[Rfam]
RNA sequence: AGCAUCUCAUGGGGGUGCCCGGCAAAAAUGGACCGGGCUGAGAGGCAAGUGGCCAACUCCUUGAACCUGAUCCGGCUUGUACCGGCGGAGGGAUUUGAGAUGAGUGACUUG
Dot-bracket structure: .....((((.((((..(((((............)))))......((.....))...)))).....(((...((((......))))...)))....))))............
The family of this 111-nucleotide RNA sequence from Roseibium suaedae is "TPP riboswitch aptamer (THI element)". Pairs were carried over by alignment from the consensus structure, which is taken from published work. Vitamin B(1) in its active form thiamin pyrophosphate (TPP) is an essential coenzyme that is synthesised by coupling of pyrimidine and thiazole moieties in bacteria.